[Rfam]
RNA sequence: UGGGGUUGCUGAAUUAGAGAUCGGCGCCUGUGUAUUUCACAAUAAAUCUGGAGUGUUAUAAUGUCUCUAAGUGUUGAAGCGAAAGCGAAAAUUGUUACUGAUUUCGGCCGCGAUGCC
Numbered sequence: 001u002g003g004g005g006u007u008g009c010u011g012a013a014u015u016a017g018a019g020a021u022c023g024g025c026g027c028c029u030g031u032g033u034a035u036u037u038c039a040c041a042a043u044a045a046a047u048c049u050g051g052a053g054u055g056u057u058a059u060a061a062u063g064u065c066u067c068u069a070a071g072u073g074u075u076g077a078a079g080c081g082a083a084a085g086c087g088a089a090a091a092u093u094g095u096u097a098c099u100g101a102u103u104u105c106g107g108c109c110g111c112g113a114u115g116c117c
Stems, first nucleotide, its partner, number of pairs: 007026006047071001049069005
A member of the RNA family "Ribosomal S15 leader" from Acerihabitans arboris, 117 nucleotides long. Gene Ontology term of the family: regulation of translation, ncRNA-mediated. Lineage of the source: Bacteria > Pseudomonadati > Pseudomonadota > Enterobacterales > Acerihabitans. The E. coli Ribosomal S15 gene 5' UTR can form two alternative structures. One that is a series of three hairpins, The other includes a pseudoknot. This structure causes translational regulation of the S15 protein. The literature on the family includes a 1996 paper in Biochimie by Benard et al., "Pseudoknot and translational control in the expression of the S15 ribosomal protein". A search with the family's covariance model found it, with a score of 105 bits.